[Rfam]
RNA sequence: CAGCAUUGUGGGAGCUGUAACCCAGGGGCGGUAGCGUG
Number, nucleotide and partner (000 for none) at each position: 001c000002a000003g000004c000005a000006u000007u000008g000009u024010g023011g022012g021013a000014g000015c000016u000017g000018u000019a000020a000021c012022c011023c010024a009025g000026g000027g000028g000029c000030g000031g000032u000033a000034g000035c000036g000037u000038g000

A member of the RNA family "JUMPstart RNA" from Pantoea sp. M_5, 38 nucleotides long. Lineage of the source: Bacteria > Pseudomonadati > Gammaproteobacteria > Erwiniaceae > Pantoea. It is annotated as a cis-regulatory element.